[Rfam]
The family of this 58-nucleotide sequence from Microbacterium sorbitolivorans is "msiK RNA".
Nucleotides: 058
Base pairs, nucleotide, nucleotide: 010052011051013049014048015047016046028045029044030043031042032041033040
Number, partner (000 for none) and nucleotide at each position: 001000g002000c003000g004000c005000c006000u007000c008000g009000c010052u011051c012000a013049u014048u015047c016046a017000c018000a019000a020000a021000g022000g023000a024000u025000c026000g027000u028045c029044c030043g031042g032041c033040a034000c035000g036000u037000a038000c039000c040033u041032g042031c043030c044029g045028g046016u047015g048014a049013a050000g051011g052010a053000g054000a055000a056000g057000c058000a
It is annotated as a cis-regulatory element. The base pairs follow the family's consensus structure, which is taken from published work.